[Rfam]
RNA sequence: CUGGGAACAAUAUCCUGAUGCUGCAUGAGUGUAUCAAGUGGAACUCCAGCAUCAGUGAUUUUGUUGCCAG
Numbered sequence: 001c002u003g004g005g006a007a008c009a010a011u012a013u014c015c016u017g018a019u020g021c022u023g024c025a026u027g028a029g030u031g032u033a034u035c036a037a038g039u040g041g042a043a044c045u046c047c048a049g050c051a052u053c054a055g056u057g058a059u060u061u062u063g064u065u066g067c068c069a070g
Stems, first nucleotide, its partner, number of pairs: 006065005012059003015055009
The record is a 70-nucleotide RNA sequence from Oncorhynchus tshawytscha, which matches "mir-338 microRNA precursor family" in Rfam. Pairs were carried over by alignment from the consensus structure, which was predicted with RNAalifold. Its family is annotated with RISC complex and miRNA-mediated post-transcriptional gene silencing in the Gene Ontology. The literature on the family includes a 2010 paper in PLoS One by Stark et al., "Characterization of the Melanoma miRNAome by Deep Sequencing". NCBI's taxonomy places the organism under Eukaryota, Metazoa, Gnathostomata, Euteleostomi, Oncorhynchus.